[Rfam]
Nucleotides: 138
Base pairs, nucleotide, nucleotide: 003059004058005057006056017046018045019044020043021042022041023040024039025038073127074126076124077123088115089114091111092110093109094108095107096106
Number, partner (000 for none) and nucleotide at each position: 001000u002000u003059c004058c005057a006056c007000a008000g009000c010000u011000a012000c013000u014000g015000g016000u017046c018045u019044g020043c021042a022041g023040c024039u025038g026000u027000u028000u029000u030000u031000a032000u033000g034000g035000u036000a037000g038025c039024a040023g041022u042021u043020g044019u045018g046017g047000c048000a049000u050000u051000c052000c053000u054000c055000u056006g057005u058004g059003g060000g061000a062000a063000a064000g065000a066000a067000a068000g069000u070000g071000u072000u073127a074126c075000c076124c077123a078000a079000u080000g081000u082000g083000a084000c085000a086000u087000c088115c089114c090000u091111c092110u093109u094108u095107c096106c097000c098000a099000g100000c101000a102000a103000a104000a105000u106096g107095g108094a109093a110092a111091g112000u113000u114089g115088g116000g117000c118000a119000u120000a121000u122000g123077u124076g125000u126074g127073u128000g129000a130000c131000a132000g133000a134000c135000a136000c137000a138000g
The record is a 138-nucleotide RNA sequence from Echinops telfairi, which matches "Small nucleolar RNA SNORA41" in Rfam. The sequence is in the family's curated seed alignment. Taxonomically the source falls in Echinops (Eukaryota, Opisthokonta, Dipnotetrapodomorpha, Tenrecidae). Pairs were carried over by alignment from the consensus structure, which was predicted with PFOLD. ACA41 is a member of the H/ACA class of snoRNA that guide the sites of modification of uridines to pseudouridines. Rfam 15.1 lists 676 matches to the family in 522 species. Rfam classes the family as an H/ACA-box small nucleolar RNA.